[Rfam]
RNA sequence: UUCUUAUCCAGAAAGACCGAGGGAAUUGACCCAAUGAAGUCUUGGCAACCUGUUCAGAAAUGAAUAAGGUGCCACAUUCAACCCAAGUAUAUUUGGGAAAGAUAAGUU
Numbered sequence: 001u002u003c004u005u006a007u008c009c010a011g012a013a014a015g016a017c018c019g020a021g022g023g024a025a026u027u028g029a030c031c032c033a034a035u036g037a038a039g040u041c042u043u044g045g046c047a048a049c050c051u052g053u054u055c056a057g058a059a060a061u062g063a064a065u066a067a068g069g070u071g072c073c074a075c076a077u078u079c080a081a082c083c084c085a086a087g088u089a090u091a092u093u094u095g096g097g098a099a100a101g102a103u104a105a106g107u108u
Base pairs, nucleotide, nucleotide: 003106004105005104006103007102008101013043014042015041016040017039021032022031023030026081027080028079029078044073045072046071047070049069050068053063054062077100082097083096084095085094086093087092

Rfam assigns this 108-nucleotide sequence from Flavobacterium arcticum to the family "SAM riboswitch aptamer (S box leader)". The source organism's lineage runs through Bacteria, Flavobacteriia, Flavobacteriales, Flavobacteriaceae and Flavobacterium. Pairs were carried over by alignment from the consensus structure, which is taken from published work.